[Rfam]
RNA sequence: AUGCCUUAAACUUAAUGAAUAAGGUAAAUAAUGAGUAAGGAAAAUAAUGAUUCUGGGUGAUGCCCAAAUCCUCACUGCUAAUAGAGACGAAUUUUUGUGCGGGUAAAGGUUGCCCCUAAGAUGACCUGCCUAUUUUGUGGGAUGCCUGGGAGUCAUUAUCUGCCUG
Numbered sequence: 001a002u003g004c005c006u007u008a009a010a011c012u013u014a015a016u017g018a019a020u021a022a023g024g025u026a027a028a029u030a031a032u033g034a035g036u037a038a039g040g041a042a043a044a045u046a047a048u049g050a051u052u053c054u055g056g057g058u059g060a061u062g063c064c065c066a067a068a069u070c071c072u073c074a075c076u077g078c079u080a081a082u083a084g085a086g087a088c089g090a091a092u093u094u095u096u097g098u099g100c101g102g103g104u105a106a107a108g109g110u111u112g113c114c115c116c117u118a119a120g121a122u123g124a125c126c127u128g129c130c131u132a133u134u135u136u137g138u139g140g141g142a143u144g145c146c147u148g149g150g151a152g153u154c155a156u157u158a159u160c161u162g163c164c165u166g
Base pairs, nucleotide, nucleotide: 004040005039006038007037008036049070050069051068052067055064056063071086072085073084100166101165102164103163104162107161108160109159110158112156116150117149119147120146122144123143125141126140127139128138129137